[Rfam]
RNA sequence: CUUCACCGACCCCAGCAGCAGGGGCCGGUCGGACGGCCGCUCCUGACCGUAGGUGGCCAGCAGCGCCUGCACCUC
Numbered sequence: 001c002u003u004c005a006c007c008g009a010c011c012c013c014a015g016c017a018g019c020a021g022g023g024g025c026c027g028g029u030c031g032g033a034c035g036g037c038c039g040c041u042c043c044u045g046a047c048c049g050u051a052g053g054u055g056g057c058c059a060g061c062a063g064c065g066c067c068u069g070c071a072c073c074u075c
Stems, first nucleotide, its partner, number of pairs: 015025002032070001038065002043060003047056003